[Rfam]
RNA: Bacterial RNase P class A
Organism: Nitrincola lacisaponensis
RNA sequence: GGAGUCUGCCGGACAAUCGCUGUCCUGCAUGCAGGAGAGAGGAAAGUCCGGGCUCUACAGGGCAGAGUGCCAGAUAACGUCUGGGCGGCGUGAGCCGACGGAAAGUGCAACAGAAAGUAUACCGCCUAAGGGCUCUUCGGAGUCACGGUAAGGUUGAAAUGGUGCGGUAAGAGCGCACCGCGUGGGUGGUAACACUCCACGGCGAUGGAAAACCCCACUCAGAGCAAGACCAAAUAGGGAUCCUUCAGGUGUGGCCCGCACUGGAUCCGGGUAGGUUGCUUGAGGCCAGUGGUGACGCUGGUCCUAGAUGAAUGAUUGUCCCCGACAAAACCCGGCUUACAGGCAGGCUCCCAUC
Numbered sequence: 001g002g003a004g005u006c007u008g009c010c011g012g013a014c015a016a017u018c019g020c021u022g023u024c025c026u027g028c029a030u031g032c033a034g035g036a037g038a039g040a041g042g043a044a045a046g047u048c049c050g051g052g053c054u055c056u057a058c059a060g061g062g063c064a065g066a067g068u069g070c071c072a073g074a075u076a077a078c079g080u081c082u083g084g085g086c087g088g089c090g091u092g093a094g095c096c097g098a099c100g101g102a103a104a105g106u107g108c109a110a111c112a113g114a115a116a117g118u119a120u121a122c123c124g125c126c127u128a129a130g131g132g133c134u135c136u137u138c139g140g141a142g143u144c145a146c147g148g149u150a151a152g153g154u155u156g157a158a159a160u161g162g163u164g165c166g167g168u169a170a171g172a173g174c175g176c177a178c179c180g181c182g183u184g185g186g187u188g189g190u191a192a193c194a195c196u197c198c199a200c201g202g203c204g205a206u207g208g209a210a211a212a213c214c215c216c217a218c219u220c221a222g223a224g225c226a227a228g229a230c231c232a233a234a235u236a237g238g239g240a241u242c243c244u245u246c247a248g249g250u251g252u253g254g255c256c257c258g259c260a261c262u263g264g265a266u267c268c269g270g271g272u273a274g275g276u277u278g279c280u281u282g283a284g285g286c287c288a289g290u291g292g293u294g295a296c297g298c299u300g301g302u303c304c305u306a307g308a309u310g311a312a313u314g315a316u317u318g319u320c321c322c323c324g325a326c327a328a329a330a331c332c333c334g335g336c337u338u339a340c341a342g343g344c345a346g347g348c349u350c351c352c353a354u355c
Base pairs, nucleotide, nucleotide: 001351002350003349004348005347006346007345008344009343010342011340012320013319014318015317016316017315018314020039021038023036024035025034026033027032044338045337046336048335049334050333051332052331053224054223055222056221060257061256062255063254065220066219067218068217069216070084071083072082073081074080085099086097087096088095089094100215101214105213106212108208122153123152124149125148126147131144132143133142134141135140161179162178163177164176165175166174180203181201182200183199184198185197186195187194188193228277229276230275231274238268239267240266241265242264243263248262249261250260251259252258284303285302286301287300288299289298290297291296